RNA: Actinobacteria sRNA Ms_AS-4
RNA sequence: CAGAACCAGGGUGGAUCAGGUUCGGGUCAUCGCCGAACUCAGCGAGCACCCGGGCGCCGAGGAUCAUCCCGAGCCCUGGCAGG
Dot-bracket structure: .........(.((.....(((((((.......))))))))).)............(((.(((.(........).))))))...
Numbered sequence: 001c002a003g004a005a006c007c008a009g010g011g012u013g014g015a016u017c018a019g020g021u022u023c024g025g026g027u028c029a030u031c032g033c034c035g036a037a038c039u040c041a042g043c044g045a046g047c048a049c050c051c052g053g054g055c056g057c058c059g060a061g062g063a064u065c066a067u068c069c070c071g072a073g074c075c076c077u078g079g080c081a082g083g
Stems, first nucleotide, its partner, number of pairs: 010043001012041002019039007056080003060077003064073001